[Rfam]
RNA sequence: GUGCUCGGGUUUGGCUUCAGAUCGAAUAAAUCUUUCGCCUUUUACUAAAGAUUUCCGUGGAGCUGAACGAUCACGCCUAAUGAGGAAUUUUUUUAGGCUCUGUUUGGGCAGAGCU
Number, nucleotide and partner (000 for none) at each position: 001g000002u000003g078004c000005u000006c075007g000008g000009g068010u067011u066012u065013g064014g063015c062016u061017u060018c059019a058020g000021a000022u000023c000024g000025a000026a000027u000028a054029a053030a052031u051032c050033u049034u048035u047036c000037g000038c000039c000040u000041u000042u000043u000044a000045c000046u000047a035048a034049a033050g032051a031052u030053u029054u028055c000056c000057g000058u019059g018060g017061a016062g015063c014064u013065g012066a011067a010068c009069g000070a000071u000072c000073a000074c000075g006076c000077c000078u003079a000080a000081u000082g000083a000084g000085g000086a000087a000088u000089u000090u000091u000092u000093u000094u000095a115096g000097g114098c113099u112100c111101u110102g109103u000104u000105u000106g000107g000108g000109c102110a101111g100112a099113g098114c097115u095

Annotation
The family of this 115-nucleotide RNA sequence from Catharus ustulatus is "U5 spliceosomal RNA". The source organism's lineage runs through Eukaryota, Opisthokonta, Deuterostomia, Tetrapoda and Catharus. Pairs were carried over by alignment from the consensus structure, which is taken from published work. A search with the family's covariance model found it, with a score of 84 bits. About the family: U5 RNA is a component of both types of known spliceosome.